Source information: pan motif: a 143-nucleotide RNA sequence from Cohnella nanjingensis. The organism belongs to Cohnella, within Bacteria. Pairs were carried over by alignment from the consensus structure, which is taken from published work. By type it is a cis-regulatory element.
[Rfam]
RNA sequence: CGGGCGGUAUCGAACGAACCGCACCGAUAGAUGAACCACAUGAUAGCGGAUUACUUACUCGCCAUGCAAUGGGAACUACCAACUGCAUACCGUGAUAUUUCGCGGCGGAUUCUGCUCUGAGCCGAAGGGACCGAGACAGAAGG
Numbered sequence: 001c002g003g004g005c006g007g008u009a010u011c012g013a014a015c016g017a018a019c020c021g022c023a024c025c026g027a028u029a030g031a032u033g034a035a036c037c038a039c040a041u042g043a044u045a046g047c048g049g050a051u052u053a054c055u056u057a058c059u060c061g062c063c064a065u066g067c068a069a070u071g072g073g074a075a076c077u078a079c080c081a082a083c084u085g086c087a088u089a090c091c092g093u094g095a096u097a098u099u100u101c102g103c104g105g106c107g108g109a110u111u112c113u114g115c116u117c118u119g120a121g122c123c124g125a126a127g128g129g130a131c132c133g134a135g136a137c138a139g140a141a142g143g
Stems, first nucleotide, its partner, number of pairs: 001026003004022005010017002112139003115135003119131001122129002